[Rfam]
RNA sequence: CUGUUCCUUUUUCCUAUGCAUAUAUCUCUUUGAGAAGUAACAUUAAAGAGGCAUAAGGCAUGGGAAAAGGGGGCAG
Numbered sequence: 001c002u003g004u005u006c007c008u009u010u011u012u013c014c015u016a017u018g019c020a021u022a023u024a025u026c027u028c029u030u031u032g033a034g035a036a037g038u039a040a041c042a043u044u045a046a047a048g049a050g051g052c053a054u055a056a057g058g059c060a061u062g063g064g065a066a067a068a069g070g071g072g073g074c075a076g
Stems, first nucleotide, its partner, number of pairs: 010067010021055003025051008

This 76-nucleotide RNA sequence from Electrophorus electricus belongs to the Rfam family "mir-202 microRNA precursor family". It scores 90 bits against the family's covariance model.